[Rfam]
RNA sequence: AUCUUAUCCAGAGUGGUGGAGGGACUGGCCCUAUGAAACCCGGCAACCCGUUUGAAGGUGCUAAAUCCAGCAGGAACACAUCCUGAAAGAUAAGAU
Numbered sequence: 001a002u003c004u005u006a007u008c009c010a011g012a013g014u015g016g017u018g019g020a021g022g023g024a025c026u027g028g029c030c031c032u033a034u035g036a037a038a039c040c041c042g043g044c045a046a047c048c049c050g051u052u053u054g055a056a057g058g059u060g061c062u063a064a065a066u067c068c069a070g071c072a073g074g075a076a077c078a079c080a081u082c083c084u085g086a087a088a089g090a091u092a093a094g095a096u
Stems, first nucleotide, its partner, number of pairs: 001096008013041001015040003021031003025070004042062004047058002049054001066088001071085005
The family of this 96-nucleotide RNA from Fictibacillus enclensis is "SAM riboswitch aptamer (S box leader)". It scores 89 bits against the family's covariance model. Lineage of the source: Bacteria > Bacillati > Bacillota > Fictibacillaceae > Fictibacillus.